[Rfam]
Alphaproteobacteria transfer-messenger RNA: a 389-nucleotide RNA from Hyphomicrobium nitrativorans.
Pairs were carried over by alignment from the consensus structure, which is taken from published work.
Bacterial tmRNA, also known as 10Sa RNA or SsrA, is named for its dual tRNA and mRNA-like properties. Its role is to liberate the mRNA from a stalled ribosome. To accomplish this part of the tmRNA is used as a reading frame that ends in a translation stop signal. The broken mRNA is replaced in the ribosome by the tmRNA and translation of the tmRNA leads to addition of a proteolysis tag to the incomplete protein enabling recognition by a protease. Recently a number of permuted tmRNA genes have been found encoded in two parts. tmRNAs have been identified in eubacteria and some chloroplasts but are absent from archaeal and eukaryote nuclear genomes.
RNA sequence: ACUCUUUCAAUUCUUAACCUCCCCGCCUAUAUUCCAGGGUGCCGGAUUCGUCCGGCUAUGGCGAUAAAUGGACGUCGUAAUAAGCCGUUCGGACCCGGGGGCAGUACCCGGCGCCUCCACCAUCAGCCCAUUCGGCGUUUGGGGCAAUCGGCCCUGAAAGUCCAGUGGGUUGCUGAUGGGGGCGAACUAGGAUCGACGAGGGUGUAAAGGGCGCGCUUUUGCUCGGCAUGAUACCGCCGUCAUCGGGUCAUUCAGAAUAGUUGCCAAUGACAACUAUGCUGAGGCUGCUCUCGCUGCGUAAUGCGGCGCGAAAUGCCUAAACGGAACUCCUUACCCCUAGCCGGGUAAGGCGCGGUUCGGGAGGCACCGGGCAACAGAAGCCUCCCACU
Numbered sequence: 001a002c003u004c005u006u007u008c009a010a011u012u013c014u015u016a017a018c019c020u021c022c023c024c025g026c027c028u029a030u031a032u033u034c035c036a037g038g039g040u041g042c043c044g045g046a047u048u049c050g051u052c053c054g055g056c057u058a059u060g061g062c063g064a065u066a067a068a069u070g071g072a073c074g075u076c077g078u079a080a081u082a083a084g085c086c087g088u089u090c091g092g093a094c095c096c097g098g099g100g101g102c103a104g105u106a107c108c109c110g111g112c113g114c115c116u117c118c119a120c121c122a123u124c125a126g127c128c129c130a131u132u133c134g135g136c137g138u139u140u141g142g143g144g145c146a147a148u149c150g151g152c153c154c155u156g157a158a159a160g161u162c163c164a165g166u167g168g169g170u171u172g173c174u175g176a177u178g179g180g181g182g183c184g185a186a187c188u189a190g191g192a193u194c195g196a197c198g199a200g201g202g203u204g205u206a207a208a209g210g211g212c213g214c215g216c217u218u219u220u221g222c223u224c225g226g227c228a229u230g231a232u233a234c235c236g237c238c239g240u241c242a243u244c245g246g247g248u249c250a251u252u253c254a255g256a257a258u259a260g261u262u263g264c265c266a267a268u269g270a271c272a273a274c275u276a277u278g279c280u281g282a283g284g285c286u287g288c289u290c291u292c293g294c295u296g297c298g299u300a301a302u303g304c305g306g307c308g309c310g311a312a313a314u315g316c317c318u319a320a321a322c323g324g325a326a327c328u329c330c331u332u333a334c335c336c337c338u339a340g341c342c343g344g345g346u347a348a349g350g351c352g353c354g355g356u357u358c359g360g361g362a363g364g365c366a367c368c369g370g371g372c373a374a375c376a377g378a379a380g381c382c383u384c385c386c387a388c389u
Stems, first nucleotide, its partner, number of pairs: 041056005060223005070216001073213004085202002089199003095111005112184007224239004229250003234246002353369004360385006